[Rfam]
RNA sequence: AAAACAAAGUAGAAGUUCACUUCUCACCUUAGGUUCUUGGGAGCAAAGGUAAAUAUUACGUGAAAUUACGAACAUGUAUAAACGUGUAUAUUUAUGAGCAGGUAGAACUUUGUCUAUCUGCUUUUUUUCUUUUGU
Numbered sequence: 001a002a003a004a005c006a007a008a009g010u011a012g013a014a015g016u017u018c019a020c021u022u023c024u025c026a027c028c029u030u031a032g033g034u035u036c037u038u039g040g041g042a043g044c045a046a047a048g049g050u051a052a053a054u055a056u057u058a059c060g061u062g063a064a065a066u067u068a069c070g071a072a073c074a075u076g077u078a079u080a081a082a083c084g085u086g087u088a089u090a091u092u093u094a095u096g097a098g099c100a101g102g103u104a105g106a107a108c109u110u111u112g113u114c115u116a117u118c119u120g121c122u123u124u125u126u127u128u129c130u131u132u133u134g135u
Base pairs, nucleotide, nucleotide: 011024012023013022014021015020026050027049028048033044034043035042036041097122098121099120100119101118102117103116104115105114106113
RNA: Ribosomal protein L20 leader
Organism: Alkalibaculum bacchi